Lysine riboswitch aptamer: a 181-nucleotide RNA from Ruminiclostridium hungatei. The organism belongs to Ruminiclostridium, within Bacteria. The family's consensus secondary structure is taken from published work.
RNA sequence: AUUUUAGAUAGAGGUGCGUUUUUUAUAAGUAACUGCAUUGAGGAUUUUGGGAUUCUAUGAUAUGCAGCAAAAGGAAAAAACGCCGAAGGUUAUUACUUCCCAAUAACAUGUAAUACCUGGUUUCAAUGUUAAGAGCCUUGAGACUGUCAUCAUGACGAAGUGGUGGAGCGCUAUCUGUUUA
Number, nucleotide and partner (000 for none) at each position: 001a000002u000003u000004u000005u000006a176007g175008a174009u173010a172011g171012a000013g000014g000015u000016g083017c082018g081019u080020u079021u078022u077023u076024u075025a000026u000027a000028a000029g000030u000031a000032a000033c067034u066035g065036c064037a063038u062039u000040g000041a000042g000043g000044a000045u000046u000047u000048u000049g000050g000051g000052a000053u000054u000055c000056u000057a000058u000059g000060a000061u000062a038063u037064g036065c035066a034067g033068c000069a000070a000071a000072a000073g000074g000075a024076a023077a022078a021079a020080a019081c018082g017083c016084c000085g000086a000087a118088g117089g116090u115091u000092a000093u113094u112095a111096c110097u000098u108099c000100c000101c000102a000103a000104u000105a000106a000107c000108a098109u000110g096111u095112a094113a093114u000115a090116c089117c088118u087119g145120g144121u143122u142123u141124c140125a139126a138127u000128g136129u135130u000131a000132a000133g000134a000135g129136c128137c000138u126139u125140g124141a123142g122143a121144c120145u119146g000147u166148c165149a164150u163151c162152a161153u160154g000155a000156c000157g000158a000159a000160g153161u152162g151163g150164u149165g148166g147167a000168g000169c000170g000171c011172u010173a009174u008175c007176u006177g000178u000179u000180u000181a000